[Rfam]
RNA sequence: GGAAGCGUGUGUCUCUGACACAUCUGAACAUUGAUCGCUCUCACUCAGCCGAUCUGCUCUGAUGAUGUCGACCGUACACAGUCGGCGCUCCCGCUGCACCGUUGGCCGCACGGUCGAGCGCUGCCCGUUCUAAAUUGCUGCUUUUUCGGUGGCUCCUGGGUGUACAAUCGGCACUUUCUCCUGUAGGCUUUUCUAAAGUGGGGAGGGUAGCUACAACCAAACCUGCGCUUCCAUGUCCUGGCACUGCUCGAGGCAGUUUGCCAUCUCUUUUA
Numbered sequence: 001g002g003a004a005g006c007g008u009g010u011g012u013c014u015c016u017g018a019c020a021c022a023u024c025u026g027a028a029c030a031u032u033g034a035u036c037g038c039u040c041u042c043a044c045u046c047a048g049c050c051g052a053u054c055u056g057c058u059c060u061g062a063u064g065a066u067g068u069c070g071a072c073c074g075u076a077c078a079c080a081g082u083c084g085g086c087g088c089u090c091c092c093g094c095u096g097c098a099c100c101g102u103u104g105g106c107c108g109c110a111c112g113g114u115c116g117a118g119c120g121c122u123g124c125c126c127g128u129u130c131u132a133a134a135u136u137g138c139u140g141c142u143u144u145u146u147c148g149g150u151g152g153c154u155c156c157u158g159g160g161u162g163u164a165c166a167a168u169c170g171g172c173a174c175u176u177u178c179u180c181c182u183g184u185a186g187g188c189u190u191u192u193c194u195a196a197a198g199u200g201g202g203g204a205g206g207g208u209a210g211c212u213a214c215a216a217c218c219a220a221a222c223c224u225g226c227g228c229u230u231c232c233a234u235g236u237c238c239u240g241g242c243a244c245u246g247c248u249c250g251a252g253g254c255a256g257u258u259u260g261c262c263a264u265c266u267c268u269u270u271u272a
Base pairs, nucleotide, nucleotide: 001232002231003230004229005228006227007226008225016070024061026059029056030055033054034053035052036051037049038048039047240262241261242260243257244256245255246254247253
Rfam assigns this 272-nucleotide RNA from Haemaphysalis longicornis to the family "Arthropod 7SK RNA". Rfam 15.1 lists 229 matches to the family in 137 species. For this family Rfam cites "Arthropod 7SK RNA" (Gruber et al., Mol Biol Evol, 2008). The base pairs follow the family's consensus structure, which is taken from published work. The family is grouped with related families in Rfam's "7SK clan". Rfam classes the family as a non-coding RNA gene. A search with the family's covariance model found it, with a score of 60 bits.